RNA: mir-4868 microRNA precursor family
RNA sequence: CAUGUCAGUACUGGUGAGUCUGGGUGCUGAUGAUCUGUCCUACAUUGUACCAUCAGCUCCAAGGCUGAUCAGUACCGAUGUG
Number, nucleotide and partner (000 for none) at each position: 001c000002a000003u080004g079005u000006c077007a000008g075009u074010a000011c072012u071013g070014g069015u068016g000017a066018g065019u064020c000021u062022g060023g059024g058025u000026g057027c056028u055029g054030a053031u052032g000033a000034u000035c000036u000037g000038u000039c000040c000041u000042a000043c000044a000045u000046u000047g000048u000049a000050c000051c000052a031053u030054c029055a028056g027057c026058u024059c023060c022061a000062a021063g000064g019065c018066u017067g000068a015069u014070c013071a012072g011073u000074a009075c008076c000077g006078a000079u004080g003081u000082g000